[Rfam]
RNA sequence: UCAGAAGAACCAGGUUUUGCGGUCUAGUCUUGGGAGGACGUGAUUUCUGGGCGCGUGAGAUUCGCUGCCCGCCGGACAUGGUAAUUGGAAAUCCAGACACGCGAUUUUUUCAGAUGCAGGGCCUCGGCCUUGCAUCUUUUU
Numbered sequence: 001u002c003a004g005a006a007g008a009a010c011c012a013g014g015u016u017u018u019g020c021g022g023u024c025u026a027g028u029c030u031u032g033g034g035a036g037g038a039c040g041u042g043a044u045u046u047c048u049g050g051g052c053g054c055g056u057g058a059g060a061u062u063c064g065c066u067g068c069c070c071g072c073c074g075g076a077c078a079u080g081g082u083a084a085u086u087g088g089a090a091a092u093c094c095a096g097a098c099a100c101g102c103g104a105u106u107u108u109u110u111c112a113g114a115u116g117c118a119g120g121g122c123c124u125c126g127g128c129c130u131u132g133c134a135u136c137u138u139u140u141u
Stems, first nucleotide, its partner, number of pairs: 018103004027039004042093005050069003053065003071082003115134008
RNA: Alphaproteobacterial sRNA ar9
Organism: Fulvimarina endophytica